[Rfam]
RNA: Small nucleolar RNA R64/Z200 family
Organism: Quercus lobata
RNA sequence: GUUAUGCUGUGAUGAAUUAUGAAUAAAUUCACAUGUCAGACUUCAGAGAUUAUUACAAUCAAUGAGAAGUACAUUCAUCUAUUCUGAGCAUAAU
Numbered sequence: 001g002u003u004a005u006g007c008u009g010u011g012a013u014g015a016a017u018u019a020u021g022a023a024u025a026a027a028u029u030c031a032c033a034u035g036u037c038a039g040a041c042u043u044c045a046g047a048g049a050u051u052a053u054u055a056c057a058a059u060c061a062a063u064g065a066g067a068a069g070u071a072c073a074u075u076c077a078u079c080u081a082u083u084c085u086g087a088g089c090a091u092a093a094u
Stems, first nucleotide, its partner, number of pairs: 001094007048060004